[Rfam]
RNA sequence: CUGUCUCUUGCUUCAAUAGUGUCUGGACGGAACAG
Numbered sequence: 001c002u003g004u005c006u007c008u009u010g011c012u013u014c015a016a017u018a019g020u021g022u023c024u025g026g027a028c029g030g031a032a033c034a035g
Stems, first nucleotide, its partner, number of pairs: 001035004006031003010028001012027004017021001
The record is a 35-nucleotide RNA from Physeter macrocephalus, which matches "Iron response element I" in Rfam. Lineage of the source: Eukaryota > Craniata > Vertebrata > Dipnotetrapodomorpha > Physeter. Gene Ontology term of the family: response to iron ion. Rfam classes the family as a cis-regulatory element. Pairs were carried over by alignment from the consensus structure, which is taken from published work. The match comes from Rfam's covariance-model search (35 bits).